[Rfam]
RNA sequence: AUAAUGAUACUUCCGGCAACGGCUGUCCAUAGGAAUGGCAGAGGUGAAAGCCCUAUGC
Numbered sequence: 001a002u003a004a005u006g007a008u009a010c011u012u013c014c015g016g017c018a019a020c021g022g023c024u025g026u027c028c029a030u031a032g033g034a035a036u037g038g039c040a041g042a043g044g045u046g047a048a049a050g051c052c053c054u055a056u057g058c
Stems, first nucleotide, its partner, number of pairs: 012055001013022003023041003027037001042054003

Overview
The family of this 58-nucleotide RNA is "pemK RNA". The family's RNA type in Rfam is cis-regulatory element. The sequence is in the family's curated seed alignment.